The family of this 129-nucleotide sequence from Xenorhabdus innexi is "RtT RNA". It scores 64 bits against the family's covariance model. A reference for the family is Bosl and Kersten (1991), "A novel RNA product of the tyrT operon of Escherichia coli", Nucleic Acids Res. Its family is annotated with cellular response to amino acid starvation in the Gene Ontology. Rfam's curators write: This family represents a bacterial cis-regulatory element known as RtT RNA. The exact function of RtT is unknown although it is thought that it may be involved in changing the cellular response in relation to amino acid starvation.
[Rfam]
RNA sequence: CUCAGUCGAUAAAAAAGUUGACUUUUAAUCGAUUGGUGUAGGUUUGAGCCGAACAAAGCAAGACAACAACGCAUAAGCGUUGGCCCGAAGGGUGAGGCCGGAGGCCGAAUCAUCCUGCACGAUUCACCA
Numbered sequence: 001c002u003c004a005g006u007c008g009a010u011a012a013a014a015a016a017g018u019u020g021a022c023u024u025u026u027a028a029u030c031g032a033u034u035g036g037u038g039u040a041g042g043u044u045u046g047a048g049c050c051g052a053a054c055a056a057a058g059c060a061a062g063a064c065a066a067c068a069a070c071g072c073a074u075a076a077g078c079g080u081u082g083g084c085c086c087g088a089a090g091g092g093u094g095a096g097g098c099c100g101g102a103g104g105c106c107g108a109a110u111c112a113u114c115c116u117g118c119a120c121g122a123u124u125c126a127c128c129a
Stems, first nucleotide, its partner, number of pairs: 017118002020115001023112001034094002037092001043089004051059001067082006
Dot-bracket structure: ................((.(..(..........((.(.....((((....(.......).......((((((....))))))...))))..))).................)..).))...........